The family of this 115-nucleotide sequence from Lachnospiraceae bacterium XBB1006 is "FMN riboswitch aptamer (RFN element)". The match comes from Rfam's covariance-model search (112 bits). Taxonomically the source falls in Lachnospiraceae (Bacteria, Bacillati, Bacillota, Lachnospirales). The family's consensus secondary structure is taken from published work.
RNA sequence: UAACAUUUUCAGGGUGUGGUGAAAAUCCCAACCGGCGGUAAAGCCCGCGAGCCGAAAGGCAUGAUUCGGUGUAAUUCCGAAGCCGACAGUAAAGUCUGGAUGGAAGAAAGUGUGU
Numbered sequence: 001u002a003a004c005a006u007u008u009u010c011a012g013g014g015u016g017u018g019g020u021g022a023a024a025a026u027c028c029c030a031a032c033c034g035g036c037g038g039u040a041a042a043g044c045c046c047g048c049g050a051g052c053c054g055a056a057a058g059g060c061a062u063g064a065u066u067c068g069g070u071g072u073a074a075u076u077c078c079g080a081a082g083c084c085g086a087c088a089g090u091a092a093a094g095u096c097u098g099g100a101u102g103g104a105a106g107a108a109a110g111u112g113u114g115u
Base pairs, nucleotide, nucleotide: 003113004112005111006110007109008108009107010106018028019027031095032094033085034084035048036047037046038045043083044082053059065081066080067079068078069077087098088097089096